[Rfam]
RNA sequence: UUGUUUGCGGAUGGAGCAUCAUCAAGAUUCACGUAUCAUUCUUAGGGCAAUCGAAUAUUAAUGGUGAAGAUCAUCCUUUUUGCUUCACCAUACAUGUACCAAUAUUUAGUCCCUUGGAUAUAUAUGAGAAUCUUGAUGAUGCUGCAGCGGCAAUAAA
Numbered sequence: 001u002u003g004u005u006u007g008c009g010g011a012u013g014g015a016g017c018a019u020c021a022u023c024a025a026g027a028u029u030c031a032c033g034u035a036u037c038a039u040u041c042u043u044a045g046g047g048c049a050a051u052c053g054a055a056u057a058u059u060a061a062u063g064g065u066g067a068a069g070a071u072c073a074u075c076c077u078u079u080u081u082g083c084u085u086c087a088c089c090a091u092a093c094a095u096g097u098a099c100c101a102a103u104a105u106u107u108a109g110u111c112c113c114u115u116g117g118a119u120a121u122a123u124a125u126g127a128g129a130a131u132c133u134u135g136a137u138g139a140u141g142c143u144g145c146a147g148c149g150g151c152a153a154u155a156a157a
Stems, first nucleotide, its partner, number of pairs: 010148001012146002015143016032126005
A member of the RNA family "mir-172 microRNA precursor family" from Gossypium mustelinum, 157 nucleotides long. A search with the family's covariance model found it, with a score of 83 bits. From the family's description: mir-172 has been experimentally verified in Arabidopsis thaliana. This family is thought to target mRNAs coding for APETALA2-like transcription factors. The mature sequence is excised from the 3' arm of the hairpin. On this family, see Park et al., Curr Biol 2002: "CARPEL FACTORY, a Dicer homolog, and HEN1, a novel protein, act in microRNA metabolism in Arabidopsis thaliana".